Annotation
The record is an 81-nucleotide sequence from Zizania palustris, which matches "Small nucleolar RNA Z155" in Rfam. The family has 8 seed sequences and 429 matches in Rfam 15.1. For this family Rfam cites "The high diversity of snoRNAs in plants: identification and comparative study of 120 snoRNA genes from Oryza sativa" (Chen et al., Nucleic Acids Res, 2003). By type it is a C/D-box small nucleolar RNA. The organism belongs to Zizania, within Eukaryota.
RNA sequence: AGCUGAUGUGAGGAUAUGAUCUUGACAAGAACUCUUUGUUGUGUUGACCCGAAAAUUCAGACUACAAUUAUCUGAUCGGCU
Numbered sequence: 001a002g003c004u005g006a007u008g009u010g011a012g013g014a015u016a017u018g019a020u021c022u023u024g025a026c027a028a029g030a031a032c033u034c035u036u037u038g039u040u041g042u043g044u045u046g047a048c049c050c051g052a053a054a055a056u057u058c059a060g061a062c063u064a065c066a067a068u069u070a071u072c073u074g075a076u077c078g079g080c081u
Base pairs, nucleotide, nucleotide: 001081002080003079004078005077006076
Dot-bracket structure: ((((((.....................................................................))))))